[Rfam]
RNA: mir-301 microRNA precursor family
RNA sequence: UGGGACCGCCGGCUCUGACAAUAUUGCACUACUGUUUAUCUCAAAUUUAGCAGUGCAAUAAUAUUGUCAAAGCAUUUGGUCCCAGU
Numbered sequence: 001u002g003g004g005a006c007c008g009c010c011g012g013c014u015c016u017g018a019c020a021a022u023a024u025u026g027c028a029c030u031a032c033u034g035u036u037u038a039u040c041u042c043a044a045a046u047u048u049a050g051c052a053g054u055g056c057a058a059u060a061a062u063a064u065u066g067u068c069a070a071a072g073c074a075u076u077u078g079g080u081c082c083c084a085g086u
Stems, first nucleotide, its partner, number of pairs: 002083003007078002012073003016069004023059008034042001